Nucleotides: 219
Stems, first nucleotide, its partner, number of pairs: 001084003004080002007076002013072008023062011035050004086155007095148004103144002107142004112137004118131003175212006182205002185202003189198002
Number, partner (000 for none) and nucleotide at each position: 001084a002083u003082a004080u005079g006000c007076a008075u009000g010000u011000a012000u013072g014071c015070a016069u017068a018067u019066g020065c021000a022000u023062g024061c025060a026059u027058u028057c029056a030055u031054g032053a033052a034000u035050g036049u037048a038047u039000c040000c041000a042000u043000a044000u045000g046000c047038a048037u049036g050035c051000a052033u053032u054031c055030a056029u057028g058027a059026a060025u061024g062023u063000a064000u065020g066019c067018a068017u069016a070015u071014g072013c073000a074000u075008g076007u077000a078000u079005c080004a081000a082003u083002a084001u085000g086155c087154a088153u089152g090151c091150a092149u093000g094000c095148a096147u097146g098145u099000a100000u101000c102000c103144a104143u105000a106000u107142g108141c109140a110139u111000u112137c113136a114135u115134g116000u117000a118131u119130g120129c121000a122000u123000a124000u125000g126000c127000a128000u129120g130119c131118a132000u133000u134115c135114a136113u137112g138000u139110a140109u141108g142107u143104a144103u145098g146097c147096a148095u149092a150091u151090g152089c153088a154087u155086g156000u157000a158000u159000c160000c161000a162000u163000a164000u165000g166000c167000a168000u169000u170000c171000a172000u173000g174000u175212a176211u177210g178209c179208a180207u181000a182205u183204g184000c185202a186201u187200g188000c189198a190197u191000u192000c193000a194000u195000g196000u197190a198189u199000g200187u201186a202185u203000g204183c205182a206000u207180a208179u209178g210177c211176a212175u213000g214000u215000a216000u217000g218000c219000a

Enterococcus sRNA 1300: a 219-nucleotide RNA sequence from Ceratopteris richardii. From the family's description: Expressed in mid and late exponential phases of growth. Expression remained uniform under daptomycin exposure. Rfam classes the family as a small RNA. On this family, see Sinel et al., Sci Rep 2017: "Small RNAs in vancomycin-resistant Enterococcus faecium involved in daptomycin response and resistance". It scores 57 bits against the family's covariance model.